[Rfam]
The record is an 89-nucleotide RNA from Paenibacillus graminis, which matches "pemK RNA" in Rfam.
RNA sequence: AUAAUGAUACUUCUGCCUGGCCAACGUAACGGUAUUGGGGGCAGCUCGCUCGGAUGAGGGGGAGUCUCUGUAUAAGAACAGAGCUAUGA
Numbered sequence: 001a002u003a004a005u006g007a008u009a010c011u012u013c014u015g016c017c018u019g020g021c022c023a024a025c026g027u028a029a030c031g032g033u034a035u036u037g038g039g040g041g042c043a044g045c046u047c048g049c050u051c052g053g054a055u056g057a058g059g060g061g062g063a064g065u066c067u068c069u070g071u072a073u074a075a076g077a078a079c080a081g082a083g084c085u086a087u088g089a
Base pairs, nucleotide, nucleotide: 012086013044014043015042016041017040018039045062046061047060049058050057051056063085064084

The family's RNA type in Rfam is cis-regulatory element. NCBI's taxonomy places the organism under Bacteria, Bacilli, Caryophanales, Paenibacillaceae, Paenibacillus.